Rfam assigns this 244-nucleotide RNA sequence from an Olavius algarvensis Delta 4 endosymbiont to the family "Bacterial large signal recognition particle RNA".
Rfam classes the family as a non-coding RNA gene.
[Rfam]
RNA sequence: UUGCGCUAGGCGGGGCGUUAGCGGUGCCCUUUGCCCGAAAUCCGCUUAUGCGGGGCUGAAUUCCUCCCUGAGGAUCACCUCCCCGAGCCCAUGCAAUAGCUGACCGGCCGCCACGCAACAGACGGUUACGAACCUCGUCAGGUCCGGAAGGAAGCAGCGAUAAGUAAUGCGGUCUGCGUCGUGGUCAGGUCCCGGUUAUGUGAUGCGUGGGUUUGGUGGAAUCGAUUCGAGGGGGGGUGCGCAA
Dot-bracket structure: ((((((..(((((((((((...))))))))...((((.(.........).))))))).....(((((((..(((((...((((((((((((((..(((..(((((((.((((((((..(((((.(((((.....((((....(((....)))....))))...)))))...))))).).))))))...)..)))))))..).)).))))))))))).)))...)))))..))))))).))))))
A reference for the family is Rosenblad et al. (2003), "SRPDB: Signal Recognition Particle Database", Nucleic Acids Res. Rfam's curators write: The signal recognition particle (SRP) is a universally conserved ribonucleoprotein involved in the co-translational targeting of proteins to membranes.